[Rfam]
RNA: T-box leader
Organism: Bacillaceae bacterium SAS-127
RNA sequence: AUGAAAAUGUUGACGAGGAAAAAGUUGUUAGAAUCCGUAUUUCACAGAGAGCCGGUUAGAGCUGAGACCCGGUAAUACCUCUUACAACGACAUCCCCUCUGAGUGCUGAUCUGAACGUUCGCUAGUAGGAUCGGUCGAGUAGCUACUACUCGUUAUCAAAAAGGACAAUGAAUCAUUGUCCAUGAGGUGGUAUUUGUAAAAGUACCAUAAACCAGGGUGGUACCGUGGAAAGAAAAGCUCUUUUCACCCCUGCG
Numbered sequence: 001a002u003g004a005a006a007a008u009g010u011u012g013a014c015g016a017g018g019a020a021a022a023a024g025u026u027g028u029u030a031g032a033a034u035c036c037g038u039a040u041u042u043c044a045c046a047g048a049g050a051g052c053c054g055g056u057u058a059g060a061g062c063u064g065a066g067a068c069c070c071g072g073u074a075a076u077a078c079c080u081c082u083u084a085c086a087a088c089g090a091c092a093u094c095c096c097c098u099c100u101g102a103g104u105g106c107u108g109a110u111c112u113g114a115a116c117g118u119u120c121g122c123u124a125g126u127a128g129g130a131u132c133g134g135u136c137g138a139g140u141a142g143c144u145a146c147u148a149c150u151c152g153u154u155a156u157c158a159a160a161a162a163g164g165a166c167a168a169u170g171a172a173u174c175a176u177u178g179u180c181c182a183u184g185a186g187g188u189g190g191u192a193u194u195u196g197u198a199a200a201a202g203u204a205c206c207a208u209a210a211a212c213c214a215g216g217g218u219g220g221u222a223c224c225g226u227g228g229a230a231a232g233a234a235a236a237g238c239u240c241u242u243u244u245c246a247c248c249c250c251u252g253c254g
Base pairs, nucleotide, nucleotide: 007104008103015099016098017097018096027088028087029086032083041075042074051073052072053071054070055069106134107133108132109131110130111129112128136152137151138150139149140148187208188207189206190205191204192203193202214251215250216249217248225247226246227245228244229243230242231241232240233239